[Rfam]
RNA sequence: UGUCCCCACCUGGGAAUAGUAGCUUUUAGUUGGUGGUGCUCAUCUCACAUCAGCCAGAGACAAAGCAACCCCUUGUUUAUCCCUGCUUGGCUUUUGGCCUGUGCCCAUGCCUGGUUCAUGCCUUGGACACAUGG
Number, nucleotide and partner (000 for none) at each position: 001u062002g061003u060004c059005c000006c057007c000008a000009c000010c053011u052012g051013g050014g000015a000016a000017u000018a045019g044020u000021a040022g039023c038024u000025u036026u035027u000028a000029g000030u000031u000032g000033g000034u000035g026036g025037u000038g023039c022040u021041c000042a000043u000044c019045u018046c000047a000048c000049a000050u013051c012052a011053g010054c000055c000056a000057g006058a000059g004060a003061c002062a001063a000064a000065g000066c000067a000068a000069c000070c000071c000072c000073u000074u129075g128076u127077u126078u125079a124080u000081c000082c000083c000084u000085g000086c000087u000088u000089g122090g121091c120092u000093u000094u000095u118096g117097g116098c000099c114100u113101g112102u000103g110104c109105c000106c000107a000108u000109g104110c103111c000112u101113g100114g099115u000116u097117c096118a095119u000120g091121c090122c089123u000124u079125g078126g077127a076128c075129a074130c000131a000132u000133g000134g000
Rfam assigns this 134-nucleotide RNA from Cebus imitator to the family "Small nucleolar RNA SNORA48". The literature on the family includes a 1997 paper in J Mol Biol by Ofengand and Bakin, "Mapping to nucleotide resolution of pseudouridine residues in large subunit ribosomal RNAs from representative eukaryotes, prokaryotes, archaebacteria, mitochondria and chloroplasts". The family has 24 seed sequences and 2,109 matches in Rfam 15.1. Rfam describes the family as follows. The snoRNA ACA 48 has been identified to guide pseudouridylation of the residue U3797 in the 28S rRNA subunit. The family's consensus secondary structure was predicted with RNAalifold. The family's RNA type in Rfam is H/ACA-box small nucleolar RNA.